[Rfam]
RNA sequence: CCGCGCCUGCCGAAGGAGGCAGCCUUGUCGUUCAUUUCUCGGUUUUGCAGGCAACCCGACAAGGUACCCUCUCGUGAUCCGCAAUUUUGCGGAUUCAAAAUCUUUCC
Numbered sequence: 001c002c003g004c005g006c007c008u009g010c011c012g013a014a015g016g017a018g019g020c021a022g023c024c025u026u027g028u029c030g031u032u033c034a035u036u037u038c039u040c041g042g043u044u045u046u047g048c049a050g051g052c053a054a055c056c057c058g059a060c061a062a063g064g065u066a067c068c069c070u071c072u073c074g075u076g077a078u079c080c081g082c083a084a085u086u087u088u089g090c091g092g093a094u095u096c097a098a099a100a101u102c103u104u105u106c107c
Stems, first nucleotide, its partner, number of pairs: 005052006015072002018069002022065008041056004078093006
RNA: RT-5 RNA